[Rfam]
RNA sequence: AGCUUCAACAUCCCCGCAGGCUGGGCGCGGACGUCGAAUAGCGGAUCUUAAUCAAGGGGUCGGCUAAGCGAUGACGCGCAGUGAGUCUGCUGCAGCC
Numbered sequence: 001a002g003c004u005u006c007a008a009c010a011u012c013c014c015c016g017c018a019g020g021c022u023g024g025g026c027g028c029g030g031a032c033g034u035c036g037a038a039u040a041g042c043g044g045a046u047c048u049u050a051a052u053c054a055a056g057g058g059g060u061c062g063g064c065u066a067a068g069c070g071a072u073g074a075c076g077c078g079c080a081g082u083g084a085g086u087c088u089g090c091u092g093c094a095g096c097c
Stems, first nucleotide, its partner, number of pairs: 002096003006092002013083001014081001016090007023082001025079005032073005
Annotation
Shown here is a 97-nucleotide RNA sequence, a member of the family "nadA riboswitch". The family's RNA type in Rfam is small RNA.